[Rfam]
RNA sequence: AAGACUGAAUAGGGGAGCUUUUUGCUGAGAGGAAGUUCGACUUCGACCCUUGACCUGAUGCGGAUAAUGCCGCCGUAGGAAUUUCACGAUAUUUCUAU
Number, nucleotide and partner (000 for none) at each position: 001a000002a000003g000004a000005c000006u086007g085008a084009a083010u000011a050012g049013g048014g047015g000016a000017g025018c024019u000020u000021u000022u000023u000024g018025c017026u000027g000028a000029g000030a000031g000032g044033a043034a042035g041036u040037u000038c000039g000040a036041c035042u034043u033044c032045g000046a000047c014048c013049c012050u011051u000052g000053a000054c079055c078056u077057g076058a000059u000060g073061c072062g071063g070064a000065u000066a000067a000068u000069g000070c063071c062072g061073c060074c000075g000076u057077a056078g055079g054080a000081a000082u000083u009084u008085c007086a006087c000088g000089a000090u000091a000092u000093u000094u000095c000096u000097a000098u000
Description: The family of this 98-nucleotide sequence from [Eubacterium] siraeum is "TPP riboswitch aptamer (THI element)". Pairs were carried over by alignment from the consensus structure, which is taken from published work. Lineage of the source: Bacteria > Clostridia > Eubacteriales > Oscillospiraceae > [Eubacterium] siraeum.